[Rfam]
RNA sequence: ACAACAAGAACAAUAAGCACCAAAAACAACAUACCUCGACUCUGUCGACUACAAGAACAACAGGACAGGGAAGAAGCAAACAUAUUUUUUUGAAGUAGGUGUGCGUUCCGGGGCAACCCGGAGGCCAGGCAAAAAGAACAAGACUACUCAAGUAGCUCGGGCCCAGGUUAGCCAACCAACGAUCAAAAAAAUACGUUUGCCUUGAACCCCGGAUGGGGUUGGAUCGAUAAAAACAACAACAAAUCGAUCAACAAGAAAAACAAAGCAAUGACGAUUUGAGGGGAGCUUCGGCUCCCCUCAGUGCUUUCUGGCGUCCGGAGUGCCUUGCGUCG
Numbered sequence: 001a002c003a004a005c006a007a008g009a010a011c012a013a014u015a016a017g018c019a020c021c022a023a024a025a026a027c028a029a030c031a032u033a034c035c036u037c038g039a040c041u042c043u044g045u046c047g048a049c050u051a052c053a054a055g056a057a058c059a060a061c062a063g064g065a066c067a068g069g070g071a072a073g074a075a076g077c078a079a080a081c082a083u084a085u086u087u088u089u090u091u092g093a094a095g096u097a098g099g100u101g102u103g104c105g106u107u108c109c110g111g112g113g114c115a116a117c118c119c120g121g122a123g124g125c126c127a128g129g130c131a132a133a134a135a136g137a138a139c140a141a142g143a144c145u146a147c148u149c150a151a152g153u154a155g156c157u158c159g160g161g162c163c164c165a166g167g168u169u170a171g172c173c174a175a176c177c178a179a180c181g182a183u184c185a186a187a188a189a190a191a192u193a194c195g196u197u198u199g200c201c202u203u204g205a206a207c208c209c210c211g212g213a214u215g216g217g218g219u220u221g222g223a224u225c226g227a228u229a230a231a232a233a234c235a236a237c238a239a240c241a242a243a244u245c246g247a248u249c250a251a252c253a254a255g256a257a258a259a260a261c262a263a264a265g266c267a268a269u270g271a272c273g274a275u276u277u278g279a280g281g282g283g284a285g286c287u288u289c290g291g292c293u294c295c296c297c298u299c300a301g302u303g304c305u306u307u308c309u310g311g312c313g314u315c316c317g318g319a320g321u322g323c324c325u326u327g328c329g330u331c332g
Base pairs, nucleotide, nucleotide: 037073040070041069042068043067088188089187090186091185092184102181103180123169124168125167126166128164144155145154146153147152206219207218208217209216210215225246226245227244228243265304266303267302278299279298280297281296282295283294284293285292286291
RNA: Pseudomonas sRNA CrcZ
Organism: Pseudomonas jinjuensis